[Rfam]
RNA sequence: UGGGAGGAUGAUACACAACUAGGGCUCAAUCUGCUCUAAUUGUCACACAUUCUCCCUAUAGUAACUUUCCCUGCCGAUGACCGGGACGAAGCGAGAGAACUCGUAACGGACAGAUACGAGGUGCACAGUG
Numbered sequence: 001u002g003g004g005a006g007g008a009u010g011a012u013a014c015a016c017a018a019c020u021a022g023g024g025c026u027c028a029a030u031c032u033g034c035u036c037u038a039a040u041u042g043u044c045a046c047a048c049a050u051u052c053u054c055c056c057u058a059u060a061g062u063a064a065c066u067u068u069c070c071c072u073g074c075c076g077a078u079g080a081c082c083g084g085g086a087c088g089a090a091g092c093g094a095g096a097g098a099a100c101u102c103g104u105a106a107c108g109g110a111c112a113g114a115u116a117c118g119a120g121g122u123g124c125a126c127a128g129u130g
Base pairs, nucleotide, nucleotide: 002056003055004054005053006052007051015043016042017041018040022036023035024034025033068123070121071120072119081109082108083107086104087103088102089101

This 130-nucleotide sequence from Tinamus guttatus belongs to the Rfam family "Small Cajal body specific RNA 8". The family has 22 seed sequences and 955 matches in Rfam 15.1. scaRNAs are a specific class of small nuclear RNAs which localise to the Cajal bodies and guide the modification of RNA polymerase II transcribed spliceosomal RNAs U1, U2, U4, U5 and U12. U92 belong to the H/ACA box class of guide RNAs as it has the predicted hairpin-hinge-hairpin-tail structure, conserved H/ACA-box motifs and is found associated with GAR1. Pairs were carried over by alignment from the consensus structure, which is taken from published work.